[Rfam]
RNA sequence: GUACCAUUCAGUCUACCUGGCCAUGUUAUUUCACUAUCACAACACCACUAACAUGGUCCCGAUUUCCCUGGUGUUGGCGCAGUAUUCGCGCACCCCGGUAUAGCC
Numbered sequence: 001g002u003a004c005c006a007u008u009c010a011g012u013c014u015a016c017c018u019g020g021c022c023a024u025g026u027u028a029u030u031u032c033a034c035u036a037u038c039a040c041a042a043c044a045c046c047a048c049u050a051a052c053a054u055g056g057u058c059c060c061g062a063u064u065u066c067c068c069u070g071g072u073g074u075u076g077g078c079g080c081a082g083u084a085u086u087c088g089c090g091c092a093c094c095c096c097g098g099u100a101u102a103g104c105c
Stems, first nucleotide, its partner, number of pairs: 020057008070094003077091004
RNA: ArcZ RNA